[Rfam]
RNA sequence: UCAGACGGCCGGGCGGUCGCGGUCGCCUUCGGGCGGUCGAGGAAAGUCCGGGCUCCACGGUGAAAUGGCGGCGGGUAACGCCCGCCGGGGGCGACCCCAGGGAUAGCGCCACAGAAAGCAAACUGCCCUCCCGAGAUCUUCGGGUUUCGGCCGAGGGUGAGGGUGAAAGGGUGCGGUAAGAGCGCACCGCGGGCCUGGUGACAGGACCGGCAUGGCAAGCCCCGCCAGGAGCAAGACCGAAUAGGGACCGCGCGCCCGUCCUCGGACGGGCAGGGCUCGCCGGCCCGAGCGGUCCGGGUAGGUCGCGAGAACCGUCCGGCGACGGACGGUCCAGAGGAAUGAUCGUCGCCCCGGCUUCGGCCGGGGGCACAGAACCCGGCUUAUAGGCCGUCUGAUCCG
Numbered sequence: 001u002c003a004g005a006c007g008g009c010c011g012g013g014c015g016g017u018c019g020c021g022g023u024c025g026c027c028u029u030c031g032g033g034c035g036g037u038c039g040a041g042g043a044a045a046g047u048c049c050g051g052g053c054u055c056c057a058c059g060g061u062g063a064a065a066u067g068g069c070g071g072c073g074g075g076u077a078a079c080g081c082c083c084g085c086c087g088g089g090g091g092c093g094a095c096c097c098c099a100g101g102g103a104u105a106g107c108g109c110c111a112c113a114g115a116a117a118g119c120a121a122a123c124u125g126c127c128c129u130c131c132c133g134a135g136a137u138c139u140u141c142g143g144g145u146u147u148c149g150g151c152c153g154a155g156g157g158u159g160a161g162g163g164u165g166a167a168a169g170g171g172u173g174c175g176g177u178a179a180g181a182g183c184g185c186a187c188c189g190c191g192g193g194c195c196u197g198g199u200g201a202c203a204g205g206a207c208c209g210g211c212a213u214g215g216c217a218a219g220c221c222c223c224g225c226c227a228g229g230a231g232c233a234a235g236a237c238c239g240a241a242u243a244g245g246g247a248c249c250g251c252g253c254g255c256c257c258g259u260c261c262u263c264g265g266a267c268g269g270g271c272a273g274g275g276c277u278c279g280c281c282g283g284c285c286c287g288a289g290c291g292g293u294c295c296g297g298g299u300a301g302g303u304c305g306c307g308a309g310a311a312c313c314g315u316c317c318g319g320c321g322a323c324g325g326a327c328g329g330u331c332c333a334g335a336g337g338a339a340u341g342a343u344c345g346u347c348g349c350c351c352c353g354g355c356u357u358c359g360g361c362c363g364g365g366g367g368c369a370c371a372g373a374a375c376c377c378g379g380c381u382u383a384u385a386g387g388c389c390g391u392c393u394g395a396u397c398c399g
Base pairs, nucleotide, nucleotide: 001395002394003393004392005391006390007389008388009387010386011384012347013346014345015344016343017342018341020039021038022037023036024035025034026033027032044382045381046380048379049378050377051376052375053231054230055229056228062280066227067226068225069224070223071085072084073083074082075081086100087098088097089096090095101222102221106220107219108216109215110214123162124161125158126157127156128155129154130153170188171187172186173185174184175183189211190209191208192207194205195204196203197202235304236303237302238301245295246294247293248292249291250290274286275285277283311330312329313328314327315326316325317324318323